[Rfam]
RNA sequence: AACAGUCUUUCUCAGUGUAUCUCCCAUUGACAUUGAGUUCUCCUACAACAGCAGUAACCUCGGUAAAUGCCGAGGUUUUU
Numbered sequence: 001a002a003c004a005g006u007c008u009u010u011c012u013c014a015g016u017g018u019a020u021c022u023c024c025c026a027u028u029g030a031c032a033u034u035g036a037g038u039u040c041u042c043c044u045a046c047a048a049c050a051g052c053a054g055u056a057a058c059c060u061c062g063g064u065a066a067a068u069g070c071c072g073a074g075g076u077u078u079u080u
Stems, first nucleotide, its partner, number of pairs: 050076001058075007
The family of this 80-nucleotide RNA sequence from Gloeothece verrucosa is "Photosynthesis regulatory RNA1".
Taxonomically the source falls in Gloeothece verrucosa (Bacteria, Bacillati, Oscillatoriophycideae, Gloeothece).
For this family Rfam cites "The small regulatory RNA SyR1/PsrR1 controls photosynthetic functions in cyanobacteria" (Georg et al., Plant Cell, 2014).
Rfam's curators put it in the seed alignment.
Rfam's curators write: Formerly known as Syr1 discovered in Synechocystis sp PCC 6803, is a regulatory factor controlling photosynthetic functions.
Gene Ontology terms of the family: regulation of photosynthesis and regulation of translation.